[Rfam]
RNA sequence: CGCUGUCUGAGGGGAAGUUGCUCUUAGUACGAGAGGAACAGAGCAUCGUCGCCGCUGGUGUAUCGGUUGUCUGAUAAGGCAGGCCGAGCAGCUAAGCGAUUUAGGUUAAGUGCUGAAAGCAUCUAAGCACGAAGCCUAUCCCGAGACAUGACAGCGUUACGUUAGUUGAAGGUUCGCAGCAGAAGACUGCGUUGAUAGAAUGGAGGUGUAGAUCACAAGCUUCGGCGAGUGGUGAGCCUGCCAUUACUAAUAGACCAAAAC
Numbered sequence: 001c002g003c004u005g006u007c008u009g010a011g012g013g014g015a016a017g018u019u020g021c022u023c024u025u026a027g028u029a030c031g032a033g034a035g036g037a038a039c040a041g042a043g044c045a046u047c048g049u050c051g052c053c054g055c056u057g058g059u060g061u062a063u064c065g066g067u068u069g070u071c072u073g074a075u076a077a078g079g080c081a082g083g084c085c086g087a088g089c090a091g092c093u094a095a096g097c098g099a100u101u102u103a104g105g106u107u108a109a110g111u112g113c114u115g116a117a118a119g120c121a122u123c124u125a126a127g128c129a130c131g132a133a134g135c136c137u138a139u140c141c142c143g144a145g146a147c148a149u150g151a152c153a154g155c156g157u158u159a160c161g162u163u164a165g166u167u168g169a170a171g172g173u174u175c176g177c178a179g180c181a182g183a184a185g186a187c188u189g190c191g192u193u194g195a196u197a198g199a200a201u202g203g204a205g206g207u208g209u210a211g212a213u214c215a216c217a218a219g220c221u222u223c224g225g226c227g228a229g230u231g232g233u234g235a236g237c238c239u240g241c242c243a244u245u246a247c248u249a250a251u252a253g254a255c256c257a258a259a260a261c
Stems, first nucleotide, its partner, number of pairs: 001156007011142004017047001019045006048100005056094003063087005068081005103137003110130005171256004175191005196249003199245005204239003209234001212233005219226001

This 261-nucleotide part of an RNA from uncultured crenarchaeote 4B7 belongs to the Rfam family "Archaeal large subunit ribosomal RNA".
The family's consensus secondary structure is taken from published work.